Rfam assigns this 79-nucleotide RNA from Branchiostoma floridae to the family "mir-4928 microRNA precursor family". Rfam 15.1 lists 3 matches to the family in 3 species. The source organism's lineage runs through Eukaryota, Metazoa, Eumetazoa, Branchiostomatidae and Branchiostoma.
[Rfam]
RNA sequence: CCCAGCCUAGGGUGAUGUUGGCGGCAAGUGUGUGGUUGUGUCUGUCUCCAUUUGCUGUUGACAUCAGCCCCAGGCUUGC
Numbered sequence: 001c002c003c004a005g006c007c008u009a010g011g012g013u014g015a016u017g018u019u020g021g022c023g024g025c026a027a028g029u030g031u032g033u034g035g036u037u038g039u040g041u042c043u044g045u046c047u048c049c050a051u052u053u054g055c056u057g058u059u060g061a062c063a064u065c066a067g068c069c070c071c072a073g074g075c076u077u078g079c
Stems, first nucleotide, its partner, number of pairs: 004076005010070003013066018032046001033044003